[Rfam]
RNA sequence: GGUGACGAGCGGCAGUGUGAAGCCCUGGCUGGCUGUCCGGCAACCCUCCAUCCGCGGUGGGGUGCUCCAGGUGACCACCCGAUGGGCUCGGCGACUCGGCCGGACCCAUAAGCGCGAUGG
Numbered sequence: 001g002g003u004g005a006c007g008a009g010c011g012g013c014a015g016u017g018u019g020a021a022g023c024c025c026u027g028g029c030u031g032g033c034u035g036u037c038c039g040g041c042a043a044c045c046c047u048c049c050a051u052c053c054g055c056g057g058u059g060g061g062g063u064g065c066u067c068c069a070g071g072u073g074a075c076c077a078c079c080c081g082a083u084g085g086g087c088u089c090g091g092c093g094a095c096u097c098g099g100c101c102g103g104a105c106c107c108a109u110a111a112g113c114g115c116g117a118u119g120g
Stems, first nucleotide, its partner, number of pairs: 001079004009038001011037006021030002039066003044062003048057002082109005088103004